[Rfam]
RNA sequence: ACAGCGGAAGCCGAAAAGCUUAAAGAGUAGGCG
Number, nucleotide and partner (000 for none) at each position: 001a000002c000003a020004g019005c018006g000007g000008a000009a000010g032011c031012c030013g000014a000015a000016a000017a000018g005019c004020u003021u000022a000023a000024a000025g000026a000027g000028u000029a000030g012031g011032c010033g000